[Rfam]
RNA sequence: UCGAAGUGCCCUUCCGAGUUGGUCCGAUUGUUUGUGUGAGAACUUCAAUCAUCCCAGUUCAAAGGGCACUUUUCUAAUACCGACACCCGAACCCUCAUCAAGUCAAUCGGUGGAUCGAG
Numbered sequence: 001u002c003g004a005a006g007u008g009c010c011c012u013u014c015c016g017a018g019u020u021g022g023u024c025c026g027a028u029u030g031u032u033u034g035u036g037u038g039a040g041a042a043c044u045u046c047a048a049u050c051a052u053c054c055c056a057g058u059u060c061a062a063a064g065g066g067c068a069c070u071u072u073u074c075u076a077a078u079a080c081c082g083a084c085a086c087c088c089g090a091a092c093c094c095u096c097a098u099c100a101a102g103u104c105a106a107u108c109g110g111u112g113g114a115u116c117g118a119g
Stems, first nucleotide, its partner, number of pairs: 003072011016060002019057004026050003030046001034043002099117001101115001103113003